[Rfam]
RNA: T-box leader
Organism: Fusibacter sp. A1
RNA sequence: UUAAAGGCAAUGAUGGGAAGAGUAGAGAUGGAUUUGUCCUACAGAGAGUUAUCGAAUUGGUGAAAGAUAACGGCGAUGAAGUGUUGAAGAUGGCCCCGGAGCUGUUUUACUGAAAUUCGAGUAGGUAAGAACGUUGGUGAACGUUAGCACACAUGCACAUUGCGACGAGGGCUGCGAACUUUGCAGAACUAGGGUGGUACCGCGGAGUUUACUUCCGUCCCUAUU
Numbered sequence: 001u002u003a004a005a006g007g008c009a010a011u012g013a014u015g016g017g018a019a020g021a022g023u024a025g026a027g028a029u030g031g032a033u034u035u036g037u038c039c040u041a042c043a044g045a046g047a048g049u050u051a052u053c054g055a056a057u058u059g060g061u062g063a064a065a066g067a068u069a070a071c072g073g074c075g076a077u078g079a080a081g082u083g084u085u086g087a088a089g090a091u092g093g094c095c096c097c098g099g100a101g102c103u104g105u106u107u108u109a110c111u112g113a114a115a116u117u118c119g120a121g122u123a124g125g126u127a128a129g130a131a132c133g134u135u136g137g138u139g140a141a142c143g144u145u146a147g148c149a150c151a152c153a154u155g156c157a158c159a160u161u162g163c164g165a166c167g168a169g170g171g172c173u174g175c176g177a178a179c180u181u182u183g184c185a186g187a188a189c190u191a192g193g194g195u196g197g198u199a200c201c202g203c204g205g206a207g208u209u210u211a212c213u214u215c216c217g218u219c220c221c222u223a224u225u
Stems, first nucleotide, its partner, number of pairs: 007102002015097003025085002028082002038073002048071006105130007132143003172186006191222004202218005